This 204-nucleotide RNA from Streptomyces sp. ISL-1 belongs to the Rfam family "Streptomyces sRNA 4677".
Taxonomically the source falls in Streptomyces (Bacteria, Actinomycetota, Actinomycetes, Kitasatosporales).
Pairs were carried over by alignment from the consensus structure.
About the family: Located in the intergenic region between anti-sigma factor SCO4677 gene and a putative regulatory protein gene SCO4676. scr4677 expression requires the SCO4677 activity and scr4677 sRNA itself seem to affect the levels of the SCO4676-associated transcripts.
Nucleotides: 204
Stems, first nucleotide, its partner, number of pairs: 001180001007054001009052002063078005086116002089114002141175005147169002151164004186202005
Number, partner (000 for none) and nucleotide at each position: 001180g002000g003000c004000c005000u006000u007054g008000c009052u010051g011000g012000a013000u014000g015000c016000c017000c018000c019000u020000u021000u022000a023000a024000a025000g026000a027000a028000c029000u030000u031000g032000g033000g034000a035000a036000a037000g038000a039000a040000c041000u042000u043000c044000c045000c046000u047000c048000a049000c050000c051010c052009a053000a054007c055000c056000g057000g058000a059000c060000u061000u062000c063078u064077c065076a066075c067074u068000c069000g070000u071000u072000c073000a074067g075066g076065u077064g078063a079000c080000g081000a082000a083000g084000u085000g086116g087115c088000a089114g090113a091000u092000g093000u094000g095000c096000a097000g098000g099000g100000a101000u102000g103000g104000g105000c106000g107000g108000u109000a110000c111000g112000g113090u114089c115087g116086c117000g118000c119000c120000a121000u122000a123000c124000c125000a126000a127000c128000c129000g130000c131000a132000u133000a134000u135000g136000a137000c138000g139000a140000c141175g142174g143173c144172c145171c146000c147169c148168g149000c150000c151164g152163g153162g154161a155000c156000u157000g158000g159000c160000a161154u162153c163152c164151c165000g166000g167000a168148c169147g170000a171145g172144g173143g174142c175141c176000u177000g178000u179000u180001c181000a182000u183000c184000c185000a186202g187201g188200a189199a190198g191000a192000a193000a194000a195000a196000g197000g198190c199189u200188u201187c202186c203000c204000g